[Rfam]
RNA sequence: GCCGGCGCCAUCGGGGCCGGUAUGCCGGCCGGAGAGCAUCUGGUGGCAGAAGACCUUGUAUCCAUAUUGCUCAAAGGAGGAUGUGGCUAUGAGAA
Numbered sequence: 001g002c003c004g005g006c007g008c009c010a011u012c013g014g015g016g017c018c019g020g021u022a023u024g025c026c027g028g029c030c031g032g033a034g035a036g037c038a039u040c041u042g043g044u045g046g047c048a049g050a051a052g053a054c055c056u057u058g059u060a061u062c063c064a065u066a067u068u069g070c071u072c073a074a075a076g077g078a079g080g081a082u083g084u085g086g087c088u089a090u091g092a093g094a095a
Base pairs, nucleotide, nucleotide: 001021002020003019004018005017006016008015009014055093056092057091058090059089060088062086063085064084065083066082067081068080070079071078072077
This 95-nucleotide sequence from Mesorhizobium australicum belongs to the Rfam family "Repression of heat shock gene expression (ROSE) element". The match comes from Rfam's covariance-model search (61 bits). The base pairs follow the family's consensus structure, which is taken from published work. The organism belongs to Mesorhizobium australicum, within Bacteria. For this family Rfam cites "A mRNA-based thermosensor controls expression of rhizobial heat shock genes" (Nocker et al., Nucleic Acids Res, 2001).